[Rfam]
RNA sequence: GCAGACCCCUCGCACGGCGUCACCCUGUGAACCUCCCCAGGGCCGGAAGGCAGCAAGGAUAAGCAGGCUCUGUCGGGUGUGCGGGGGGUCCCUUGG
Numbered sequence: 001g002c003a004g005a006c007c008c009c010u011c012g013c014a015c016g017g018c019g020u021c022a023c024c025c026u027g028u029g030a031a032c033c034u035c036c037c038c039a040g041g042g043c044c045g046g047a048a049g050g051c052a053g054c055a056a057g058g059a060u061a062a063g064c065a066g067g068c069u070c071u072g073u074c075g076g077g078u079g080u081g082c083g084g085g086g087g088g089u090c091c092c093u094u095g096g
Base pairs, nucleotide, nucleotide: 004090005089006088007087008086009085010084011083012082013081014080015077018075019074021072022071024067025066026065027064028063034059035058036057042051043050044049
Dot-bracket structure: ...((((((((((((..((.((.(((((.....(((.....(((....))).....)))...)))))...)).)).)..)))))))))))......